[Rfam]
RNA sequence: GAAAUUCUUCGGGGUAGGGUGACUUCUUAUCGCUAUAGUAUAAGCAGAAUUCCCAACCGGCGGUUACAGUCCGCGACCUGUCAGAUUUCUGACAGCUGAUUUGGUGCAAUUCCAAAACCGACAGUAAAGUCUGGAUGAGAGAAGAAAAAG
Numbered sequence: 001g002a003a004a005u006u007c008u009u010c011g012g013g014g015u016a017g018g019g020u021g022a023c024u025u026c027u028u029a030u031c032g033c034u035a036u037a038g039u040a041u042a043a044g045c046a047g048a049a050u051u052c053c054c055a056a057c058c059g060g061c062g063g064u065u066a067c068a069g070u071c072c073g074c075g076a077c078c079u080g081u082c083a084g085a086u087u088u089c090u091g092a093c094a095g096c097u098g099a100u101u102u103g104g105u106g107c108a109a110u111u112c113c114a115a116a117a118c119c120g121a122c123a124g125u126a127a128a129g130u131c132u133g134g135a136u137g138a139g140a141g142a143a144g145a146a147a148a149a150g
Stems, first nucleotide, its partner, number of pairs: 005146006017054003056130002058120002060074004069118002078095002100116005122133003

A member of the RNA family "FMN riboswitch aptamer (RFN element)" from Allocoprococcus comes, 150 nucleotides long. The organism belongs to Allocoprococcus comes, within Bacteria.